[Rfam]
RNA sequence: GGGAAACGAGGACGGGGCUGGGGAGGUGAGGCCCCCCAAGUGCUCCUCGGGCAAAUAGGCUCA
Numbered sequence: 001g002g003g004a005a006a007c008g009a010g011g012a013c014g015g016g017g018c019u020g021g022g023g024a025g026g027u028g029a030g031g032c033c034c035c036c037c038a039a040g041u042g043c044u045c046c047u048c049g050g051g052c053a054a055a056u057a058g059g060c061u062c063a
Stems, first nucleotide, its partner, number of pairs: 014047003018040002021037003028062003032058001

Shown here is a 63-nucleotide RNA from Acinonyx jubatus, a member of the family "Ma3 gene ribosomal frameshift signal". By type it is a frameshift element. Its family is annotated with translational frameshifting in the Gene Ontology. A search with the family's covariance model found it, with a score of 48 bits. A reference for the family is Wills et al. (2006), "A functional -1 ribosomal frameshift signal in the human paraneoplastic Ma3 gene", J Biol Chem.